[Rfam]
RNA sequence: GAAACGCGAACCAAGCAGCCACACGCCAGUGGCGUAAGACUUGGAGCUGGUCUCGGCAACGAGACCACGCA
Numbered sequence: 001g002a003a004a005c006g007c008g009a010a011c012c013a014a015g016c017a018g019c020c021a022c023a024c025g026c027c028a029g030u031g032g033c034g035u036a037a038g039a040c041u042u043g044g045a046g047c048u049g050g051u052c053u054c055g056g057c058a059a060c061g062a063g064a065c066c067a068c069g070c071a
Base pairs, nucleotide, nucleotide: 011044012043013042014041015040018033019032020031021030022029048067049066050065051064052063053062054061055060